[Rfam]
RNA sequence: CCGCUCGACCUGACACAACAUUCUGCAGCAAUGUUGUGUGACCUGCAGUGUCAGUCGAGCGG
Numbered sequence: 001c002c003g004c005u006c007g008a009c010c011u012g013a014c015a016c017a018a019c020a021u022u023c024u025g026c027a028g029c030a031a032u033g034u035u036g037u038g039u040g041a042c043c044u045g046c047a048g049u050g051u052c053a054g055u056c057g058a059g060c061g062g
Base pairs, nucleotide, nucleotide: 001062002061003060005058006057007056008055009054017035018034019033020032021031022030040052041051042050
Rfam assigns this 62-nucleotide RNA sequence from Teratosphaeria nubilosa to the family "bZIP non canonical Hac1/Xbp1 intron". A search with the family's covariance model found it, with a score of 48 bits. bZIP intron RNA is a non-canonical intron that was first reported in HAC1 gene in yeast and XBP1 gene in Metazoa. On this family, see Hooks and Griffiths-Jones, RNA Biol 2011: "Conserved RNA structures in the non-canonical Hac1/Xbp1 intron". The source organism's lineage runs through Eukaryota, Pezizomycotina, Dothideomycetidae, Mycosphaerellales and Teratosphaeria.